[Rfam]
Shown here is a 66-nucleotide RNA sequence, a member of the family "RAGATH-18 RNA". The family's consensus secondary structure is taken from published work. It is annotated as a small RNA. Actinobacteria, Firmicutes, Fusobacteria, Thermotogae (1 example).
RNA sequence: CCUUUGGAGUGCGAUAUCAAACGUUAGUAGUUCGUGAGGGCGAGAACGCGCACGUUGAAAAAGGAA
Numbered sequence: 001c002c003u004u005u006g007g008a009g010u011g012c013g014a015u016a017u018c019a020a021a022c023g024u025u026a027g028u029a030g031u032u033c034g035u036g037a038g039g040g041c042g043a044g045a046a047c048g049c050g051c052a053c054g055u056u057g058a059a060a061a062a063g064g065a066a
Stems, first nucleotide, its partner, number of pairs: 001064005009053005022048003030041003